[Rfam]
RNA sequence: CCACUUUUCAUUAUGCGAAGGAUCGCUAUAUAUGGGGUGCUGGCUUCGGCUGGCUAUGGCGAUAAACUGCUGCGUGCAAUAGGCACAACGGACCCGGGGGCAGUACCCGGCGGCUCCACCACAAAACCCGGAUUUUCCGGGGCUUAUGACGGGGCCGAACUAGGAUCGACGUGUGUUGAAAGACGUAGUUUUUGCUCGGGCUGAGUAACCCGUUCAAGGCUCAAAACCCACAAGUGCCAAUGACAAUGAAGCACUCGCUCUCGCUGCGUAAUCUGACGGCCUAACGGCCUGAUCUUACAAAGCCUAGAGCACGGUUCGGACCGAACCGGGUAACAGAAUCGGAAACC
Numbered sequence: 001c002c003a004c005u006u007u008u009c010a011u012u013a014u015g016c017g018a019a020g021g022a023u024c025g026c027u028a029u030a031u032a033u034g035g036g037g038u039g040c041u042g043g044c045u046u047c048g049g050c051u052g053g054c055u056a057u058g059g060c061g062a063u064a065a066a067c068u069g070c071u072g073c074g075u076g077c078a079a080u081a082g083g084c085a086c087a088a089c090g091g092a093c094c095c096g097g098g099g100g101c102a103g104u105a106c107c108c109g110g111c112g113g114c115u116c117c118a119c120c121a122c123a124a125a126a127c128c129c130g131g132a133u134u135u136u137c138c139g140g141g142g143c144u145u146a147u148g149a150c151g152g153g154g155c156c157g158a159a160c161u162a163g164g165a166u167c168g169a170c171g172u173g174u175g176u177u178g179a180a181a182g183a184c185g186u187a188g189u190u191u192u193u194g195c196u197c198g199g200g201c202u203g204a205g206u207a208a209c210c211c212g213u214u215c216a217a218g219g220c221u222c223a224a225a226a227c228c229c230a231c232a233a234g235u236g237c238c239a240a241u242g243a244c245a246a247u248g249a250a251g252c253a254c255u256c257g258c259u260c261u262c263g264c265u266g267c268g269u270a271a272u273c274u275g276a277c278g279g280c281c282u283a284a285c286g287g288c289c290u291g292a293u294c295u296u297a298c299a300a301a302g303c304c305u306a307g308a309g310c311a312c313g314g315u316u317c318g319g320a321c322c323g324a325a326c327c328g329g330g331u332a333a334c335a336g337a338a339u340c341g342g343a344a345a346c347c
Base pairs, nucleotide, nucleotide: 039054040053041052042051043050058196059195060194061193062192069189070188071187072186073185074184075183084175085174086173088172089171090170094110095109096108097107098106111157112156113155114154115153116152117151197212198211199210200209202223203222204221312328313327314326315325321341323339

Rfam assigns this 347-nucleotide RNA from Qipengyuania algicida to the family "Alphaproteobacteria transfer-messenger RNA". About the family: Bacterial tmRNA, also known as 10Sa RNA or SsrA, is named for its dual tRNA and mRNA-like properties. The source organism's lineage runs through Bacteria, Pseudomonadati, Pseudomonadota, Erythrobacteraceae and Qipengyuania. Pairs were carried over by alignment from the consensus structure, which is taken from published work.